Shown here is a 68-nucleotide RNA from Leptomonas pyrrhocoris, a member of the family "Trypanosomatid snoRNA TB9Cs2H1".
It scores 83 bits against the family's covariance model.
Rfam 15.1 lists 57 matches to the family in 20 species.
The source organism's lineage runs through Eukaryota, Kinetoplastea, Metakinetoplastina, Trypanosomatida and Leptomonas.
[Rfam]
RNA sequence: GGCCCACAUUGGAGUUGUGUCUCGGCCCACCCCUCGUGGCCCUGUCUGCACACUCACGUGGGCCAAGA
Numbered sequence: 001g002g003c004c005c006a007c008a009u010u011g012g013a014g015u016u017g018u019g020u021c022u023c024g025g026c027c028c029a030c031c032c033c034u035c036g037u038g039g040c041c042c043u044g045u046c047u048g049c050a051c052a053c054u055c056a057c058g059u060g061g062g063c064c065a066a067g068a
Stems, first nucleotide, its partner, number of pairs: 001064007017051004024041004
It is annotated as an H/ACA-box small nucleolar RNA. For this family Rfam cites "A genome-wide analysis of C/D and H/ACA-like small nucleolar RNAs in Trypanosoma brucei reveals a trypanosome-specific pattern of rRNA modification" (Liang et al., RNA, 2005).